[Rfam]
This 359-nucleotide sequence from Hansschlegelia beijingensis belongs to the Rfam family "Alphaproteobacteria transfer-messenger RNA". Gene Ontology term of the family: RNA catabolic process. The literature on the family includes a 2010 paper in RNA Biol by Mao et al., "Variations on the tmRNA gene". Lineage of the source: Bacteria > Pseudomonadati > Hyphomicrobiales > Methylopilaceae > Hansschlegelia.
RNA sequence: CCCCUUUCGCGGCGCCGCCUGGUCCCCUAUAUUCAAUCCUGCCGGAGGCAUCCGGCUAUGGUGAUAAACGUUCGCCGCAAUAAACCCUUCGGACCCGGGGGCAGUACCCGGCGCCUCCACCAAAGUCCGCGCAAGUUCGCGGAUUUCGGCGGGGGCGAAACAGGAUCGACGGGGGCGUAAAGGGCGGGCUUUUGCCCGGCAUGGUACCGCCGUUAUCGGGCCUUUCUAUAGUUGCCAACGACAACUAUGCUCCGGUUGCUCAGGCCGCGUGAGCGGUUUGAAAGACCAAACCUAAAGUCCUGACGGUCUAGCAGCUGUCGGGCGGGGCCCGGAGGCGCCUGGCAACAGAAGCCUCCACU
Numbered sequence: 001c002c003c004c005u006u007u008c009g010c011g012g013c014g015c016c017g018c019c020u021g022g023u024c025c026c027c028u029a030u031a032u033u034c035a036a037u038c039c040u041g042c043c044g045g046a047g048g049c050a051u052c053c054g055g056c057u058a059u060g061g062u063g064a065u066a067a068a069c070g071u072u073c074g075c076c077g078c079a080a081u082a083a084a085c086c087c088u089u090c091g092g093a094c095c096c097g098g099g100g101g102c103a104g105u106a107c108c109c110g111g112c113g114c115c116u117c118c119a120c121c122a123a124a125g126u127c128c129g130c131g132c133a134a135g136u137u138c139g140c141g142g143a144u145u146u147c148g149g150c151g152g153g154g155g156c157g158a159a160a161c162a163g164g165a166u167c168g169a170c171g172g173g174g175g176c177g178u179a180a181a182g183g184g185c186g187g188g189c190u191u192u193u194g195c196c197c198g199g200c201a202u203g204g205u206a207c208c209g210c211c212g213u214u215a216u217c218g219g220g221c222c223u224u225u226c227u228a229u230a231g232u233u234g235c236c237a238a239c240g241a242c243a244a245c246u247a248u249g250c251u252c253c254g255g256u257u258g259c260u261c262a263g264g265c266c267g268c269g270u271g272a273g274c275g276g277u278u279u280g281a282a283a284g285a286c287c288a289a290a291c292c293u294a295a296a297g298u299c300c301u302g303a304c305g306g307u308c309u310a311g312c313a314g315c316u317g318u319c320g321g322g323c324g325g326g327g328c329c330c331g332g333a334g335g336c337g338c339c340u341g342g343c344a345a346c347a348g349a350a351g352c353c354u355c356c357a358c359u
Stems, first nucleotide, its partner, number of pairs: 041056005060196005070189007085175003089172003095111005112157007197212004203222002207219002325340004331356006